RNA sequence: CCGUGUGCAGGCAUCUUUCCAGCCUACACGUGCCUCUCGAUUUGCAGGCUGGUUAGAUGGUUGUCACGUGU
Number, nucleotide and partner (000 for none) at each position: 001c000002c000003g000004u000005g000006u000007g064008c063009a062010g061011g000012c059013a058014u057015c056016u055017u000018u000019c052020c051021a050022g049023c048024c047025u046026a000027c000028a000029c000030g045031u044032g043033c000034c000035u000036c000037u000038c000039g000040a000041u000042u000043u032044g031045c030046a025047g024048g023049c022050u021051g020052g019053u000054u000055a016056g015057a014058u013059g012060g000061u010062u009063g008064u007065c000066a000067c000068g000069u000070g000071u000
RNA: mir-456 microRNA precursor family